[Rfam]
RNA: U7 small nuclear RNA
RNA sequence: CAGUGUUACAGCUCUUUUAGAAUUUGUCUAGUAGUUUUUCCGGUCCUUGCCGGAAAGGACCAG
Dot-bracket structure: .................................(((((((((((....)))))))).)))...
Numbered sequence: 001c002a003g004u005g006u007u008a009c010a011g012c013u014c015u016u017u018u019a020g021a022a023u024u025u026g027u028c029u030a031g032u033a034g035u036u037u038u039u040c041c042g043g044u045c046c047u048u049g050c051c052g053g054a055a056a057g058g059a060c061c062a063g
Stems, first nucleotide, its partner, number of pairs: 034060003037056008